Overview: The family of this 72-nucleotide RNA from Clostridium sp. MD294 is "tRNA". Rfam links the family to the GO term triplet codon-amino acid adaptor activity. The match comes from Rfam's covariance-model search (65 bits). Taxonomically the source falls in Clostridium (Bacteria, Bacillati, Bacillota, Clostridiaceae).
RNA sequence: GGCGCUGUAGCCAAGCGGUAAGGCAAAGGUCUGCAACACCUCUAUGCAUCGGUUCAAAUCCGAUCAGCGCCU
Numbered sequence: 001g002g003c004g005c006u007g008u009a010g011c012c013a014a015g016c017g018g019u020a021a022g023g024c025a026a027a028g029g030u031c032u033g034c035a036a037c038a039c040c041u042c043u044a045u046g047c048a049u050c051g052g053u054u055c056a057a058a059u060c061c062g063a064u065c066a067g068c069g070c071c072u
Stems, first nucleotide, its partner, number of pairs: 001071007010024003027041004048064005